[Rfam]
RNA sequence: ACCGCUUGGUGUUUGACAGAUUAAGCGUAAAUACUUAUACUUUUAACUAACGCAAAGCUGGUGCCUGAAGCUAGUGUCUUAUAAGGUGGGGUUCUGGUGCUGAGUGGCCCAUAUUGACUGGACGUCCACACUAAGCCUGGUAUUGAUAUGGAUCCCCCGGAGGAGUCGAUGCGAUGCAGGUCUACUAAGGAGGGGCGCACCGGACUAGGGGGGAAACCCAGCAGCCAAAAGUCCCCGUAUCGGGCAGUAGUGGGAUAGCGGCCGGGAGUGGGUGCUCAGUAUCAGCCUGACCAAUAAAAUUAGUGUCUU
Numbered sequence: 001a002c003c004g005c006u007u008g009g010u011g012u013u014u015g016a017c018a019g020a021u022u023a024a025g026c027g028u029a030a031a032u033a034c035u036u037a038u039a040c041u042u043u044u045a046a047c048u049a050a051c052g053c054a055a056a057g058c059u060g061g062u063g064c065c066u067g068a069a070g071c072u073a074g075u076g077u078c079u080u081a082u083a084a085g086g087u088g089g090g091g092u093u094c095u096g097g098u099g100c101u102g103a104g105u106g107g108c109c110c111a112u113a114u115u116g117a118c119u120g121g122a123c124g125u126c127c128a129c130a131c132u133a134a135g136c137c138u139g140g141u142a143u144u145g146a147u148a149u150g151g152a153u154c155c156c157c158c159g160g161a162g163g164a165g166u167c168g169a170u171g172c173g174a175u176g177c178a179g180g181u182c183u184a185c186u187a188a189g190g191a192g193g194g195g196c197g198c199a200c201c202g203g204a205c206u207a208g209g210g211g212g213g214a215a216a217c218c219c220a221g222c223a224g225c226c227a228a229a230a231g232u233c234c235c236c237g238u239a240u241c242g243g244g245c246a247g248u249a250g251u252g253g254g255a256u257a258g259c260g261g262c263c264g265g266g267a268g269u270g271g272g273u274g275c276u277c278a279g280u281a282u283c284a285g286c287c288u289g290a291c292c293a294a295u296a297a298a299a300u301u302a303g304u305g306u307c308u309u
Base pairs, nucleotide, nucleotide: 001062002061003060004026005025006024007023008022009021010020067307068306070304071303072302073301074300075299082297085292086291087290088287089286094285095284096283097282098281099280100279101278102277103276104275105274106273108272109271110270111269112268114266118265119264120263121262123260124259125258126254127253129252130251131250132249133248135245136244137243138242139241140240141239142238143237145182146181147180149178150177152175153174154173156171160167161166185189192235193234194233195232196231203226205224210219211218212217
Rfam assigns this 309-nucleotide sequence from Spodoptera littoralis to the family "Metazoan signal recognition particle RNA".
Pairs were carried over by alignment from the consensus structure, which is taken from published work.
NCBI's taxonomy places the organism under Eukaryota, Mandibulata, Insecta, Neoptera, Spodoptera.
Gene Ontology terms of the family: SRP-dependent cotranslational protein targeting to membrane, signal sequence recognition and signal recognition particle, endoplasmic reticulum targeting.
Rfam classes the family as a non-coding RNA gene.